[Rfam]
RNA sequence: UGCACCCUACUUGUAGGUCGCUUUGGAUAAAAGCGUCUGCCAAAUGAAUUAAU
Numbered sequence: 001u002g003c004a005c006c007c008u009a010c011u012u013g014u015a016g017g018u019c020g021c022u023u024u025g026g027a028u029a030a031a032a033g034c035g036u037c038u039g040c041c042a043a044a045u046g047a048a049u050u051a052a053u
Base pairs, nucleotide, nucleotide: 012042013040014039015038019035020034021033022032023031024030
RNA: UnaL2 LINE 3' element